[Rfam]
RNA sequence: GUAGUUGCAGAUGCAGUAUCAUUAAGAUUCACAAGAGAUGUGGUUUCCCUUUGUUUGGGCUCGUUUCGAAUGGGAAUCUUGAUGAUGCUGCAUCAGCAAAUAC
Numbered sequence: 001g002u003a004g005u006u007g008c009a010g011a012u013g014c015a016g017u018a019u020c021a022u023u024a025a026g027a028u029u030c031a032c033a034a035g036a037g038a039u040g041u042g043g044u045u046u047c048c049c050u051u052u053g054u055u056u057g058g059g060c061u062c063g064u065u066u067c068g069a070a071u072g073g074g075a076a077u078c079u080u081g082a083u084g085a086u087g088c089u090g091c092a093u094c095a096g097c098a099a100a101u102a103c
Stems, first nucleotide, its partner, number of pairs: 010094021032072002
About this RNA: Shown here is a 103-nucleotide RNA from Raphanus sativus, a member of the family "mir-172 microRNA precursor family". mir-172 has been experimentally verified in Arabidopsis thaliana. This family is thought to target mRNAs coding for APETALA2-like transcription factors. NCBI's taxonomy places the organism under Eukaryota, Viridiplantae, Mesangiospermae, Brassicaceae, Raphanus. Rfam links the family to the GO terms miRNA-mediated post-transcriptional gene silencing and RISC complex.